[Rfam]
Background:
This 310-nucleotide sequence from Natronosalvus rutilus belongs to the Rfam family "Archaeal signal recognition particle RNA". Rfam classes the family as a non-coding RNA gene. The source organism's lineage runs through Archaea, Methanobacteriati, Methanobacteriota, Halobacteria and Natronosalvus. Clan: SRP clan. Rfam links the family to the GO terms SRP-dependent cotranslational protein targeting to membrane, signal sequence recognition and signal recognition particle, plasma membrane targeting.
RNA sequence: UGUGGACUAGGUCGGGCAGUUAGGCCCUGCUCACAACCCACGGUAUGGCCUUCAGUGGGGACCGAAGCCCGCGGGCGUCCGGUCAGACCGCCCGGGGCCCCGGGAGCCAACGUGGAAGCCUCGUCCGUCGGGGACAGCGGUCGACCAUGACCGUCCGCAGGGACGACUCAUCGUCGUUAGCCGGCGACAGCCCAUCAGGCGCGGAAGCGAGCAGUGGACCGCCGGACACCUGUCGCUCGACGGGUUGCGGGGUGGAGGAGGCAACCAGGAUUCCCCCGGCCGGAACGCCGGGCAACCGCGGGGUCCAACA
Numbered sequence: 001u002g003u004g005g006a007c008u009a010g011g012u013c014g015g016g017c018a019g020u021u022a023g024g025c026c027c028u029g030c031u032c033a034c035a036a037c038c039c040a041c042g043g044u045a046u047g048g049c050c051u052u053c054a055g056u057g058g059g060g061a062c063c064g065a066a067g068c069c070c071g072c073g074g075g076c077g078u079c080c081g082g083u084c085a086g087a088c089c090g091c092c093c094g095g096g097g098c099c100c101c102g103g104g105a106g107c108c109a110a111c112g113u114g115g116a117a118g119c120c121u122c123g124u125c126c127g128u129c130g131g132g133g134a135c136a137g138c139g140g141u142c143g144a145c146c147a148u149g150a151c152c153g154u155c156c157g158c159a160g161g162g163a164c165g166a167c168u169c170a171u172c173g174u175c176g177u178u179a180g181c182c183g184g185c186g187a188c189a190g191c192c193c194a195u196c197a198g199g200c201g202c203g204g205a206a207g208c209g210a211g212c213a214g215u216g217g218a219c220c221g222c223c224g225g226a227c228a229c230c231u232g233u234c235g236c237u238c239g240a241c242g243g244g245u246u247g248c249g250g251g252g253u254g255g256a257g258g259a260g261g262c263a264a265c266c267a268g269g270a271u272u273c274c275c276c277c278g279g280c281c282g283g284a285a286c287g288c289c290g291g292g293c294a295a296c297c298g299c300g301g302g303g304u305c306c307a308a309c310a
Stems, first nucleotide, its partner, number of pairs: 001310002003307006010063004014032006037059005043053001069301006077293004081288001088283003092279006099269002102266002106262003111257001113255001118253007125243008133234005139227001140178001142176004147171004152165005181225006192217004200209003